[Rfam]
RNA sequence: CCGACAUGGACAUCCAGCGAGUGUCUCCUGGCUCUGUCCUGGUGGCGUAUGGGAGCGUAGCUCUGAGCUGAGACGUACAGUCCCGUUCCACGCUGUCGGACAGAAAGCACCGUCCCCGGCUGCUGGCUGGUGAGGACGGGCGUCCUGCAUAUUCCUACAUCUUCCCAGAGUCCUUUGGGACCGUUACUGGGGAGCCAAACCAUGCAGGACACAUUU
Numbered sequence: 001c002c003g004a005c006a007u008g009g010a011c012a013u014c015c016a017g018c019g020a021g022u023g024u025c026u027c028c029u030g031g032c033u034c035u036g037u038c039c040u041g042g043u044g045g046c047g048u049a050u051g052g053g054a055g056c057g058u059a060g061c062u063c064u065g066a067g068c069u070g071a072g073a074c075g076u077a078c079a080g081u082c083c084c085g086u087u088c089c090a091c092g093c094u095g096u097c098g099g100a101c102a103g104a105a106a107g108c109a110c111c112g113u114c115c116c117c118g119g120c121u122g123c124u125g126g127c128u129g130g131u132g133a134g135g136a137c138g139g140g141c142g143u144c145c146u147g148c149a150u151a152u153u154c155c156u157a158c159a160u161c162u163u164c165c166c167a168g169a170g171u172c173c174u175u176u177g178g179g180a181c182c183g184u185u186a187c188u189g190g191g192g193a194g195c196c197a198a199a200c201c202a203u204g205c206a207g208g209a210c211a212c213a214u215u216u
Base pairs, nucleotide, nucleotide: 001099002098003097004096005095006094008039009038010037011036012035014031015030016029019027020026021025042091043090044089045088051084052083053082054081055078057076058075061070144208145207146206147205148204149203150202161194162193163192164191165190166189170181171180172179173178
A member of the RNA family "Small nucleolar RNA SNORA73 family" from Nothobranchius furzeri, 216 nucleotides long. The match comes from Rfam's covariance-model search (186 bits). For this family Rfam cites "5'ETS rRNA processing facilitated by four small RNAs: U14, E3, U17, and U3" (Enright et al., RNA, 1996). Rfam describes the family as follows. U17 (SNORA73A and SNORA73B) also known as E1 belongs to the H/ACA class of small nucleolar RNAs (snoRNAs). Vertebrate U17 is intron-encoded and ranges in length from 200-230 nucleotides, longer than most snoRNAs. Rfam links the family to the GO terms RNA processing and nucleolus. Its Rfam clan is "snR30-U17 clan".